[Rfam]
RNA sequence: GGACACUUGAGAGGAGCUGCCCAUAGUACGAGAGGACCUGGGUGGACGCACCUCUGGUGUGCCGGUUGUCCUGCCAAGGGCAUAGCCGGGUAGCCAUGUGCGGAACGGAUAACCGCUGAAAGCAUCUAAGCGGGAAGCCGGCCUCAAGACAAGGUGUCCCGAGCCUUCGGGCUCCUAAAGACCCCUCGAAGACGACGAGGUUGAUAGGCCGGGUGUGGAAGCCAAGUAACUGGCGGAGCUAACCGGUACUAAUCGGUCGUGCG
Numbered sequence: 001g002g003a004c005a006c007u008u009g010a011g012a013g014g015a016g017c018u019g020c021c022c023a024u025a026g027u028a029c030g031a032g033a034g035g036a037c038c039u040g041g042g043u044g045g046a047c048g049c050a051c052c053u054c055u056g057g058u059g060u061g062c063c064g065g066u067u068g069u070c071c072u073g074c075c076a077a078g079g080g081c082a083u084a085g086c087c088g089g090g091u092a093g094c095c096a097u098g099u100g101c102g103g104a105a106c107g108g109a110u111a112a113c114c115g116c117u118g119a120a121a122g123c124a125u126c127u128a129a130g131c132g133g134g135a136a137g138c139c140g141g142c143c144u145c146a147a148g149a150c151a152a153g154g155u156g157u158c159c160c161g162a163g164c165c166u167u168c169g170g171g172c173u174c175c176u177a178a179a180g181a182c183c184c185c186u187c188g189a190a191g192a193c194g195a196c197g198a199g200g201u202u203g204a205u206a207g208g209c210c211g212g213g214u215g216u217g218g219a220a221g222c223c224a225a226g227u228a229a230c231u232g233g234c235g236g237a238g239c240u241a242a243c244c245g246g247u248a249c250u251a252a253u254c255g256g257u258c259g260u261g262c263g
Stems, first nucleotide, its partner, number of pairs: 001159008011145004017045007047102005055096003062089005067082006106140003113133005162173003177260001180258004184200005205251003208247005215239001221234004
Dot-bracket structure: ((((((((..((((..(((((((...............))))))).(((((...(((....(((((((((((....))))))..)))))....))).)))))...(((....(((((...........)))))....))).))))......))))))))..(((......)))...(..(((((((((.......)))))....((((((((..(.....((((......))))....)...))))).)))...)))).)...